RNA sequence: GCCGCUAUUGAAAAGAGAGGGUGAGAGCCCCCGCUGGGUUCGAGCUGAGCGCUUUGUAAAAAGCGCGAAACAACGACGCUUUAGCGUCGGCCCGAAGGGAAGGUGCUUGCACCGUAUCAUCCCUCUCUGGGCCACU
Numbered sequence: 001g002c003c004g005c006u007a008u009u010g011a012a013a014a015g016a017g018a019g020g021g022u023g024a025g026a027g028c029c030c031c032c033g034c035u036g037g038g039u040u041c042g043a044g045c046u047g048a049g050c051g052c053u054u055u056g057u058a059a060a061a062a063g064c065g066c067g068a069a070a071c072a073a074c075g076a077c078g079c080u081u082u083a084g085c086g087u088c089g090g091c092c093c094g095a096a097g098g099g100a101a102g103g104u105g106c107u108u109g110c111a112c113c114g115u116a117u118c119a120u121c122c123c124u125c126u127c128u129g130g131g132c133c134a135c136u
Base pairs, nucleotide, nucleotide: 015127016126017125018124019123020122021121022119034098039096040095041094042093046067047066074089075088076087077086078085079084
The family of this 136-nucleotide RNA from Echinimonas agarilytica is "RtT RNA". The family has 57 seed sequences and 651 matches in Rfam 15.1. Pairs were carried over by alignment from the consensus structure, which is taken from published work. For this family Rfam cites "A novel RNA product of the tyrT operon of Escherichia coli" (Bosl and Kersten, Nucleic Acids Res, 1991). From the family's description: This family represents a bacterial cis-regulatory element known as RtT RNA. The exact function of RtT is unknown although it is thought that it may be involved in changing the cellular response in relation to amino acid starvation.